[Rfam]
This 113-nucleotide RNA sequence from Kroppenstedtia pulmonis belongs to the Rfam family "SAM riboswitch aptamer (S box leader)". Its family is annotated with regulation of gene expression in the Gene Ontology. From the family's description: The SAM riboswitch is found upstream of a number of genes which code for proteins involved in methionine or cysteine biosynthesis in Gram-positive bacteria. The organism belongs to Kroppenstedtia, within Bacteria. A search with the family's covariance model found it, with a score of 97 bits.
RNA sequence: CUCUUAUCCAGAGAGGUGGAGGGACUGGCCCGAUGAAACCCGGCAACCAACCGUAGUGUCAUUACGGUGAUGGUGCCAAUUCCUGCAGAACUGACAGUUCUGGCAGAUGAGAG
Numbered sequence: 001c002u003c004u005u006a007u008c009c010a011g012a013g014a015g016g017u018g019g020a021g022g023g024a025c026u027g028g029c030c031c032g033a034u035g036a037a038a039c040c041c042g043g044c045a046a047c048c049a050a051c052c053g054u055a056g057u058g059u060c061a062u063u064a065c066g067g068u069g070a071u072g073g074u075g076c077c078a079a080u081u082c083c084u085g086c087a088g089a090a091c092u093g094a095c096a097g098u099u100c101u102g103g104c105a106g107a108u109g110a111g112a113g
Stems, first nucleotide, its partner, number of pairs: 001113008013041001015040003021031003025085001027083002042077004047073002050068006081105001086102006